[Rfam]
Shown here is a 103-nucleotide RNA sequence from Amphibacillus marinus, a member of the family "SAM riboswitch aptamer (S box leader)". The match comes from Rfam's covariance-model search (90 bits). The source organism's lineage runs through Bacteria, Bacillati, Bacillota, Bacilli and Amphibacillus.

RNA sequence: UUCUUAUCUAGAGAGAUGGAGGGACUGGCCCAAUGAAAUCUCGGCAACAGGCUGUAACUAGCACUGUGCCAACUCCAGCAAGCAACUGCUUGGCAGAUAAGGG
Numbered sequence: 001u002u003c004u005u006a007u008c009u010a011g012a013g014a015g016a017u018g019g020a021g022g023g024a025c026u027g028g029c030c031c032a033a034u035g036a037a038a039u040c041u042c043g044g045c046a047a048c049a050g051g052c053u054g055u056a057a058c059u060a061g062c063a064c065u066g067u068g069c070c071a072a073c074u075c076c077a078g079c080a081a082g083c084a085a086c087u088g089c090u091u092g093g094c095a096g097a098u099a100a101g102g103g
Stems, first nucleotide, its partner, number of pairs: 001103008013042005021031003025078004043070004048066002051062004074095001079092005